[Rfam]
RNA sequence: UUGCCCUUUUAAAGUUAAUGCAAUGGUUUGAGAGGCUAACACAGAAGGGCAAAAUAAGUGUCUAUAAAACCCAGGGAAGAGGUUAUAAAAAUUUUCUUGGAUCCUAUCUGGACCCAAGAAA
Numbered sequence: 001u002u003g004c005c006c007u008u009u010u011a012a013a014g015u016u017a018a019u020g021c022a023a024u025g026g027u028u029u030g031a032g033a034g035g036c037u038a039a040c041a042c043a044g045a046a047g048g049g050c051a052a053a054a055u056a057a058g059u060g061u062c063u064a065u066a067a068a069a070c071c072c073a074g075g076g077a078a079g080a081g082g083u084u085a086u087a088a089a090a091a092u093u094u095u096c097u098u099g100g101a102u103c104c105u106a107u108c109u110g111g112a113c114c115c116a117a118g119a120a121a
Stems, first nucleotide, its partner, number of pairs: 002051009014040004019035001021032001058115001060113005071100007079093002083090002
Shown here is a 121-nucleotide RNA sequence from Erinaceus europaeus, a member of the family "Small nucleolar RNA SNORA26". Rfam classes the family as an H/ACA-box small nucleolar RNA. The snoRNA HBI-6 belong to the H/ACA family of snoRNAs, guiding the pseudouridylation of position U4522 if the 28S rRNA. HBI-6 is the human orthologue of mouse MBI-6 snoRNA. The sequence is in the family's curated seed alignment. Pairs were carried over by alignment from the consensus structure, which was predicted with RNAalifold. A reference for the family is Huttenhofer et al. (2001), "RNomics: an experimental approach that identifies 201 candidates for novel, small, non-messenger RNAs in mouse", EMBO J.